Record summary: A member of the RNA family "T-box leader" from Paenibacillus sp. KS1, 230 nucleotides long.
RNA sequence: GGAAAGACUUCGAAGAGGAAUAGUACCUUAGGUCCCAUCUUCAGAGAGCCGGCGGUUGGUGCAAGCCGGUGAUGGUGCAGAAGCGAACUCACCUCAGAGUCGCGCAGCAGAAUCAGGAGCGGUAAGCUGCGACGUAUUGCCAGCGUUAAUGGUGUAAAGGGAGUGGAUAGCAAAGCAUGCUGUCCGCUAACUAGGGUGGUACCACGGGAAUAAUGCCUCUCGUCCCUAGC
Numbered sequence: 001g002g003a004a005a006g007a008c009u010u011c012g013a014a015g016a017g018g019a020a021u022a023g024u025a026c027c028u029u030a031g032g033u034c035c036c037a038u039c040u041u042c043a044g045a046g047a048g049c050c051g052g053c054g055g056u057u058g059g060u061g062c063a064a065g066c067c068g069g070u071g072a073u074g075g076u077g078c079a080g081a082a083g084c085g086a087a088c089u090c091a092c093c094u095c096a097g098a099g100u101c102g103c104g105c106a107g108c109a110g111a112a113u114c115a116g117g118a119g120c121g122g123u124a125a126g127c128u129g130c131g132a133c134g135u136a137u138u139g140c141c142a143g144c145g146u147u148a149a150u151g152g153u154g155u156a157a158a159g160g161g162a163g164u165g166g167a168u169a170g171c172a173a174a175g176c177a178u179g180c181u182g183u184c185c186g187c188u189a190a191c192u193a194g195g196g197u198g199g200u201a202c203c204a205c206g207g208g209a210a211u212a213a214u215g216c217c218u219c220u221c222g223u224c225c226c227u228a229g230c
Stems, first nucleotide, its partner, number of pairs: 007100002015095004027083003037073003048070006103131006133145003162188011193227004204223005
Dot-bracket structure: ......((......((((........(((.......(((........((((((...........))))))))).......)))........))))...))..((((((.................)))))).(((.......)))................(((((((((((.....)))))))))))....((((.......(((((..........)))))))))...
Rfam links the family to the GO term tRNA binding. Rfam describes the family as follows. Uncharged tRNA acts as the effector for transcription antitermination of genes in the T-box leader family. By type it is a cis-regulatory leader. Rfam 15.1 lists 19,395 matches to the family in 1,923 species.